[Rfam]
RNA sequence: AUUCCAGAAGUGAUGCUAUGUCACUCCGGCAGCAAGCGAAGGUGUCUUUGACACCCGUGGUAUAGUCCCCCGGCUAUACCACGUUUUUUUUUA
Numbered sequence: 001a002u003u004c005c006a007g008a009a010g011u012g013a014u015g016c017u018a019u020g021u022c023a024c025u026c027c028g029g030c031a032g033c034a035a036g037c038g039a040a041g042g043u044g045u046c047u048u049u050g051a052c053a054c055c056c057g058u059g060g061u062a063u064a065g066u067c068c069c070c071c072g073g074c075u076a077u078a079c080c081a082c083g084u085u086u087u088u089u090u091u092u093a
Stems, first nucleotide, its partner, number of pairs: 009025007029037002041055006056083012

About this RNA
The record is a 93-nucleotide RNA sequence from Vibrio ziniensis, which matches "Translational regulator of tfoXVC" in Rfam. The base pairs follow the family's consensus structure, which was predicted with WAR. The literature on the family includes a 2011 paper in J Bacteriol by Yamamoto et al., "Identification of a chitin-induced small RNA that regulates translation of the tfoX gene, encoding a positive regulator of natural competence in Vibrio cholerae".